[Rfam]
RNA sequence: UCGGUCCCGGUUCACGUGCGGCGCCCCAGCCGCCGACCCGGUACC
Dot-bracket structure: ..(((.((((....((.(((((......)))))))..)))).)))